[Rfam]
Shown here is an 86-nucleotide RNA sequence from Brassica carinata, a member of the family "Small nucleolar RNA Z122". The family's consensus secondary structure was predicted with PFOLD. The literature on the family includes a 2003 paper in Nucleic Acids Res by Chen et al., "The high diversity of snoRNAs in plants: identification and comparative study of 120 snoRNA genes from Oryza sativa". A search with the family's covariance model found it, with a score of 69 bits.
RNA sequence: UUUGGGACAUGAUGACAAAAAUACGAAAUCUCUAAGGCUAAUGCUCUGCAGAUAUAAAUGUAUUUGCACGUCAGUCUGAUCCCGUU
Numbered sequence: 001u002u003u004g005g006g007a008c009a010u011g012a013u014g015a016c017a018a019a020a021a022u023a024c025g026a027a028a029u030c031u032c033u034a035a036g037g038c039u040a041a042u043g044c045u046c047u048g049c050a051g052a053u054a055u056a057a058a059u060g061u062a063u064u065u066g067c068a069c070g071u072c073a074g075u076c077u078g079a080u081c082c083c084g085u086u
Base pairs, nucleotide, nucleotide: 003084004083005082006081007080
Dot-bracket structure: ..(((((........................................................................)))))..